A member of the RNA family "Purine riboswitch aptamer" from Sinobaca qinghaiensis, 102 nucleotides long. For this family Rfam cites "Three-state mechanism couples ligand and temperature sensing in riboswitches" (Reining et al., Nature, 2013). The base pairs follow the family's consensus structure, which is taken from published work. From the family's description: Riboswitches are metabolite binding domains within certain messenger RNAs that serve as precision sensors for their corresponding targets. Rfam links the family to the GO term purine nucleobase biosynthetic process.

[Rfam]
RNA sequence: UCUAUAAACAUAUACUUUACUCGUAUAACUGCGGAAAUAUGGUCCGCGCGUUUCUACCAGGCUGCCUUAAACGGCCUGACUACGAGUGCAGCGUCGGCUUUU
Numbered sequence: 001u002c003u004a005u006a007a008a009c010a011u012a013u014a015c016u017u018u019a020c021u022c023g024u025a026u027a028a029c030u031g032c033g034g035a036a037a038u039a040u041g042g043u044c045c046g047c048g049c050g051u052u053u054c055u056a057c058c059a060g061g062c063u064g065c066c067u068u069a070a071a072c073g074g075c076c077u078g079a080c081u082a083c084g085a086g087u088g089c090a091g092c093g094u095c096g097g098c099u100u101u102u
Base pairs, nucleotide, nucleotide: 018088019087020086021085022084023083024082025081030048031047032046033045034044035043058078059077060076061075062074063073064072